[Rfam]
RNA sequence: ACUCAACGUUAAUUUAAUUAAAAAGAGUGAGUCAUGGUUGUAAAAGCAGGCUGCUAGUACAAAUUCGUUUGUAUUCGGGCAGAUCCUUGAUCAAUCUGUUAGCUCUAAACUUGUUUUUUGGAGUUU
Numbered sequence: 001a002c003u004c005a006a007c008g009u010u011a012a013u014u015u016a017a018u019u020a021a022a023a024a025g026a027g028u029g030a031g032u033c034a035u036g037g038u039u040g041u042a043a044a045a046g047c048a049g050g051c052u053g054c055u056a057g058u059a060c061a062a063a064u065u066c067g068u069u070u071g072u073a074u075u076c077g078g079g080c081a082g083a084u085c086c087u088u089g090a091u092c093a094a095u096c097u098g099u100u101a102g103c104u105c106u107a108a109a110c111u112u113g114u115u116u117u118u119u120g121g122a123g124u125u126u
Base pairs, nucleotide, nucleotide: 024106025105026104027103028102036096037095038094039093044088045087046086051082052081053080054079
6S-Flavo RNA: a 126-nucleotide RNA from Kordia sp. SMS9. Pairs were carried over by alignment from the consensus structure, which is taken from published work. The match comes from Rfam's covariance-model search (96 bits).